[Rfam]
A member of the RNA family "Iron response element I" from Trichechus manatus, 35 nucleotides long. The match comes from Rfam's covariance-model search (39 bits). Rfam 15.1 lists 6,829 matches to the family in 599 species. The base pairs follow the family's consensus structure, which is taken from published work. It is annotated as a cis-regulatory element. A reference for the family is Hentze et al. (1987), "Identification of the iron-responsive element for the translational regulation of human ferritin mRNA", Science.

RNA sequence: AGGUCUCCUGCUUCAACAGUGCUUGAACAGAACCC
Numbered sequence: 001a002g003g004u005c006u007c008c009u010g011c012u013u014c015a016a017c018a019g020u021g022c023u024u025g026a027a028c029a030g031a032a033c034c035c
Base pairs, nucleotide, nucleotide: 002034003033004032006031007030010028012027013026014025015024016023017021